[Rfam]
Nucleotides: 078
Base pairs, nucleotide, nucleotide: 001078002077004075005074006073007072009070010069012067013066014065015064016063019060020059021058023056024055026053027052028051030049031048032047
Number, partner (000 for none) and nucleotide at each position: 001078u002077c003000c004075u005074g006073u007072g008000a009070g010069a011000a012067a013066g014065g015064u016063c017000c018000a019060a020059c021058c022000u023056c024055a025000c026053a027052u028051g029000u030049c031048c032047u033000g034000u035000a036000a037000u038000g039000u040000u041000c042000a043000a044000g045000g046000a047032g048031g049030g050000a051028u052027a053026u054000a055024u056023g057000a058021g059020g060019u061000c062000a063016g064015a065014c066013c067012u068000g069010u070009c071000c072007c073006a074005c075004a076000g077002g078001g